[Rfam]
RNA sequence: CCGGGCGCCGCGUUCGGGCCCGGUGGGUCAUGGAGAACGCCGGCUCUUUUGCUACCGGCGUAGCUCAUGCCCAGAUCGCUCAACAGAGGAUUUGGAAAAAUGAGAA
Number, nucleotide and partner (000 for none) at each position: 001c023002c022003g021004g020005g019006c018007g000008c017009c016010g000011c000012g000013u000014u000015c000016g009017g008018g006019c005020c004021c003022g002023g001024u000025g000026g000027g000028u000029c000030a000031u000032g000033g000034a000035g000036a000037a061038c060039g059040c058041c057042g056043g055044c000045u000046c000047u000048u000049u000050u000051g000052c000053u000054a000055c043056c042057g041058g040059c039060g038061u037062a000063g000064c104065u103066c102067a101068u100069g000070c000071c095072c094073a093074g092075a091076u090077c089078g000079c088080u087081c086082a000083a000084c000085a000086g081087a080088g079089g077090a076091u075092u074093u073094g072095g071096a000097a000098a000099a000100a068101u067102g066103a065104g064105a000106a000
Record summary: A member of the RNA family "Repression of heat shock gene expression (ROSE) element" from Novosphingobium sp. ST904, 106 nucleotides long. It is annotated as an RNA thermoregulator. On this family, see Nocker et al., Nucleic Acids Res 2001: "A mRNA-based thermosensor controls expression of rhizobial heat shock genes". The organism belongs to Novosphingobium, within Bacteria. The base pairs follow the family's consensus structure, which is taken from published work. Gene Ontology terms of the family: response to temperature stimulus and regulation of translation. Rfam's curators write: This family represents a 5' UTR cis-regulatory element found in heat shock mRNAs and is known as the ROSE (repression of heat shock gene expression) element.